SmY spliceosomal RNA: an 80-nucleotide sequence from Oesophagostomum dentatum. A search with the family's covariance model found it, with a score of 48 bits. Rfam classes the family as a spliceosomal small nuclear RNA.
RNA sequence: GAACUCUUCAAGCACUAUACAGGGCUUUCAGGAAGACCCAAUGAACAAUUUUUGAGGACCUCUGCGAAGAAGCAGAGGUG
Numbered sequence: 001g002a003a004c005u006c007u008u009c010a011a012g013c014a015c016u017a018u019a020c021a022g023g024g025c026u027u028u029c030a031g032g033a034a035g036a037c038c039c040a041a042u043g044a045a046c047a048a049u050u051u052u053u054g055a056g057g058a059c060c061u062c063u064g065c066g067a068a069g070a071a072g073c074a075g076a077g078g079u080g
Stems, first nucleotide, its partner, number of pairs: 022039003026035003058079008